[Rfam]
RNA sequence: CUGCCAGCCGCAGUACCCGAACCGGUCCUACUCCCCAAGAGGCCAUCCCCAAGGGAGCUCAUGCUGCGGGGCCCUGAGCAAGCCCUCUGCUGGCGCCUAUCAAACGACACAGGCCUGAUCCUCGCGGACCAGGCCUGUGUUUUUUUGC
Numbered sequence: 001c002u003g004c005c006a007g008c009c010g011c012a013g014u015a016c017c018c019g020a021a022c023c024g025g026u027c028c029u030a031c032u033c034c035c036c037a038a039g040a041g042g043c044c045a046u047c048c049c050c051a052a053g054g055g056a057g058c059u060c061a062u063g064c065u066g067c068g069g070g071g072c073c074c075u076g077a078g079c080a081a082g083c084c085c086u087c088u089g090c091u092g093g094c095g096c097c098u099a100u101c102a103a104a105c106g107a108c109a110c111a112g113g114c115c116u117g118a119u120c121c122u123c124g125c126g127g128a129c130c131a132g133g134c135c136u137g138u139g140u141u142u143u144u145u146u147g148c
Base pairs, nucleotide, nucleotide: 002095003094004093005092006091007090008089010067011066012065013064014063015062020046024044025043026042027041028039029038048055049054069085070084071083072082107140108139109138110137111136112135113134114133115132116131117130

Shown here is a 148-nucleotide sequence from Stenotrophomonas sp. SKA14, a member of the family "Proteobacterial sRNA sX11". Rfam's curators put it in the seed alignment. Rfam classes the family as a small RNA.